The record is a 73-nucleotide sequence from Sapayoa aenigma, which matches "tRNA" in Rfam.

[Rfam]
RNA sequence: CCCCUGGUGGUCUAGUGGUUGAAGACGCGGCGCUGUCACCGCCGAGGCCCGGGUUCGAUUCCUGGUCAGGGAC
Number, nucleotide and partner (000 for none) at each position: 001c000002c071003c070004c069005u068006g067007g066008u000009g000010g026011u025012c024013u023014a000015g000016u000017g000018g000019u000020u000021g000022a000023a013024g012025a011026c010027g000028c044029g043030g042031c041032g040033c000034u000035g000036u000037c000038a000039c000040c032041g031042c030043c029044g028045a000046g000047g000048c000049c065050c064051g063052g062053g061054u000055u000056c000057g000058a000059u000060u000061c053062c052063u051064g050065g049066u007067c006068a005069g004070g003071g002072a000073c000